[Rfam]
RNA sequence: UGGCACCCAACAUGGAGCUGGAUACGGAGGAUCCAGUGAGGGAAGAAGGCAUCCCAAAGGAACGUUCCACAACAAUUUUCACUCUGGACACACCGCGGGAACCUGCCUCGGCUACAACCAGAAGUAAGUAUCGGCAUCUGAUUAUGGGACAAAAAUUAAGCAGGCAUGAAAUUUAUGUUUGGCAAUUGCACGUGCCUUAUGGAUGCGAGGAGUAAAGGUUAAAAUAGAGGAUUUAUUUCGGUUCUUUGAAUUUAUUAAAGAAACCUGUCGUU
Numbered sequence: 001u002g003g004c005a006c007c008c009a010a011c012a013u014g015g016a017g018c019u020g021g022a023u024a025c026g027g028a029g030g031a032u033c034c035a036g037u038g039a040g041g042g043a044a045g046a047a048g049g050c051a052u053c054c055c056a057a058a059g060g061a062a063c064g065u066u067c068c069a070c071a072a073c074a075a076u077u078u079u080c081a082c083u084c085u086g087g088a089c090a091c092a093c094c095g096c097g098g099g100a101a102c103c104u105g106c107c108u109c110g111g112c113u114a115c116a117a118c119c120a121g122a123a124g125u126a127a128g129u130a131u132c133g134g135c136a137u138c139u140g141a142u143u144a145u146g147g148g149a150c151a152a153a154a155a156u157u158a159a160g161c162a163g164g165c166a167u168g169a170a171a172u173u174u175a176u177g178u179u180u181g182g183c184a185a186u187u188g189c190a191c192g193u194g195c196c197u198u199a200u201g202g203a204u205g206c207g208a209g210g211a212g213u214a215a216a217g218g219u220u221a222a223a224a225u226a227g228a229g230g231a232u233u234u235a236u237u238u239c240g241g242u243u244c245u246u247u248g249a250a251u252u253u254a255u256u257a258a259a260g261a262a263a264c265c266u267g268u269c270g271u272u
Base pairs, nucleotide, nucleotide: 006030007029013024014023034049037046081125082124083123084121085120092113094110095109097107098106131152133150137148138147139146140145157199158198159197160195161194162193206248207247208246209245210244211243212242213241216234217233218232219231220230257272258271260269261268
Source information:
Shown here is a 272-nucleotide RNA sequence from Nannospalax galili, a member of the family "Mason-Pfizer monkey virus packaging signal". The base pairs follow the family's consensus structure, which was predicted with PFOLD. From the family's description: This family represents a group of sequences that are related to the Mason-Pfizer monkey virus (MPMV) packaging signal. The organism belongs to Nannospalax, within Eukaryota. A reference for the family is Mustafa et al. (2004), "Mutational analysis of the predicted secondary RNA structure of the Mason-Pfizer monkey virus packaging signal", Virus Res. Rfam links the family to the GO term viral genome packaging.